RNA sequence: GGUGUUAUGCAGUGGCAGUAUUAUAGCCAAUGAGGUUAAUCUGAGGCACGAUUAUUGCUAAUUGAAAACUUUUCCCAAUACCCUGCCAUGACGACUUGAAAUAUAGUCGGCAUUGGCAAUUUUGUGGAAGAAGAUCUGUGUG
Numbered sequence: 001g002g003u004g005u006u007a008u009g010c011a012g013u014g015g016c017a018g019u020a021u022u023a024u025a026g027c028c029a030a031u032g033a034g035g036u037u038a039a040u041c042u043g044a045g046g047c048a049c050g051a052u053u054a055u056u057g058c059u060a061a062u063u064g065a066a067a068a069c070u071u072u073u074c075c076c077a078a079u080a081c082c083c084u085g086c087c088a089u090g091a092c093g094a095c096u097u098g099a100a101a102u103a104u105a106g107u108c109g110g111c112a113u114u115g116g117c118a119a120u121u122u123u124g125u126g127g128a129a130g131a132a133g134a135u136c137u138g139u140g141u142g
Stems, first nucleotide, its partner, number of pairs: 020052003024048001026047003034042002085117003088113003092109005

U4 spliceosomal RNA: a 142-nucleotide RNA from Onychorhynchus coronatus.
U4 small nuclear RNA (U4 snRNA) is a component of the major U2-dependent spliceosome.
The family's consensus secondary structure is taken from published work.
A search with the family's covariance model found it, with a score of 90 bits.
By type it is a spliceosomal small nuclear RNA.